tRNA: an 84-nucleotide RNA from Dethiobacter alkaliphilus. The source organism's lineage runs through Bacteria, Bacillati, Dethiobacteria, Dethiobacteraceae and Dethiobacter alkaliphilus.
RNA sequence: GCGAGAGUGGUGGAACGGCAGACACGCUAGAUUCAGGAUCUAGUGCGCAUUACGCGUGUGGGGGUUCAAAUCCCCCCUCUCGCA
Numbered sequence: 001g002c003g004a005g006a007g008u009g010g011u012g013g014a015a016c017g018g019c020a021g022a023c024a025c026g027c028u029a030g031a032u033u034c035a036g037g038a039u040c041u042a043g044u045g046c047g048c049a050u051u052a053c054g055c056g057u058g059u060g061g062g063g064g065u066u067c068a069a070a071u072c073c074c075c076c077c078u079c080u081c082g083c084a
Base pairs, nucleotide, nucleotide: 001083002082003081004080005079006078007077010025011024012023027043028042029041030040031039060076061075062074063073064072
Rfam describes the family as follows. Transfer RNA (tRNA) molecules are approximately 80 nucleotides in length.